[Rfam]
RNA sequence: AACGUUCAUCUCUCCUCUGAGAGACGGAAGUAGGGCCUAGCCCGAAGGAACGCGCC
Numbered sequence: 001a002a003c004g005u006u007c008a009u010c011u012c013u014c015c016u017c018u019g020a021g022a023g024a025c026g027g028a029a030g031u032a033g034g035g036c037c038u039a040g041c042c043c044g045a046a047g048g049a050a051c052g053c054g055c056c
Base pairs, nucleotide, nucleotide: 003052004051005050006049007048009024010023011022012021013020027053033043034042035041
Dot-bracket structure: ..(((((.(((((......)))))..[.....(((.....)))....)))))]...
The record is a 56-nucleotide RNA sequence from Leptolyngbya sp. BL0902, which matches "Glutamine riboswitch aptamer (glnA leader)" in Rfam. Pairs were carried over by alignment from the consensus structure, which is taken from published work. Gene Ontology term of the family: glutamine binding. Lineage of the source: Bacteria > Bacillati > Cyanobacteriota > Leptolyngbyales > Leptolyngbya. A search with the family's covariance model found it, with a score of 58 bits.